[Rfam]
RNA: ZMP/ZTP riboswitch aptamer (pfl RNA motif)
Organism: Massilia sp. Root335
RNA sequence: UACAUCUCACGUAACUGGCGAAAACCGUGCGCUGCCGUCCGAUCAGGAGCGAUCGGCCUGCCGGUGCGUGGCGAAGGUGGGCACCCACCGGGGAACGUGAGAUUUAUUUCACUUGCCGUUCGCCUGGGCAGCCACC
Numbered sequence: 001u002a003c004a005u006c007u008c009a010c011g012u013a014a015c016u017g018g019c020g021a022a023a024a025c026c027g028u029g030c031g032c033u034g035c036c037g038u039c040c041g042a043u044c045a046g047g048a049g050c051g052a053u054c055g056g057c058c059u060g061c062c063g064g065u066g067c068g069u070g071g072c073g074a075a076g077g078u079g080g081g082c083a084c085c086c087a088c089c090g091g092g093g094a095a096c097g098u099g100a101g102a103u104u105u106a107u108u109u110c111a112c113u114u115g116c117c118g119u120u121c122g123c124c125u126g127g128g129c130a131g132c133c134a135c136c
Stems, first nucleotide, its partner, number of pairs: 004103009015092002017124005077088004113131005